[Rfam]
Rfam assigns this 97-nucleotide sequence from Syntrophobotulus glycolicus to the family "pemK RNA". Lineage of the source: Bacteria > Bacillati > Bacillota > Syntrophobotulus > Syntrophobotulus glycolicus. By type it is a cis-regulatory element.
RNA sequence: AUAAUGAUACUUUUGCUCCGUCAUAGCCCCCCGCGACCGGGGGAUCACGCAAUGAGAGCAACCGGCAGAGAUCCUGGCGGGGGUGAAAUUCCCAUGA
Numbered sequence: 001a002u003a004a005u006g007a008u009a010c011u012u013u014u015g016c017u018c019c020g021u022c023a024u025a026g027c028c029c030c031c032c033g034c035g036a037c038c039g040g041g042g043g044a045u046c047a048c049g050c051a052a053u054g055a056g057a058g059c060a061a062c063c064g065g066c067a068g069a070g071a072u073c074c075u076g077g078c079g080g081g082g083g084u085g086a087a088a089u090u091c092c093c094a095u096g097a
Base pairs, nucleotide, nucleotide: 012094013061014060015059016058017057018056062080063079064078066076067075068074081093082092083091